The record is an 83-nucleotide RNA sequence from Macaca mulatta, which matches "mir-505 microRNA precursor family" in Rfam. The base pairs follow the family's consensus structure, which was predicted with RNAalifold.
[Rfam]
RNA sequence: GAUGCACCCAGUGGGGGAGCCAGGAAGUAUUGAUGUUUCUGCCAGUUUAGCGUCAACACUUGCUGGUUUCCUCUCUGGAGCAU
Numbered sequence: 001g002a003u004g005c006a007c008c009c010a011g012u013g014g015g016g017g018a019g020c021c022a023g024g025a026a027g028u029a030u031u032g033a034u035g036u037u038u039c040u041g042c043c044a045g046u047u048u049a050g051c052g053u054c055a056a057c058a059c060u061u062g063c064u065g066g067u068u069u070c071c072u073c074u075c076u077g078g079a080g081c082a083u
Base pairs, nucleotide, nucleotide: 008078009077010076011075013073014072015071016070017069018068019067020066021065022064023063025061026060027059028058030056031055032054033053034052035051036050037049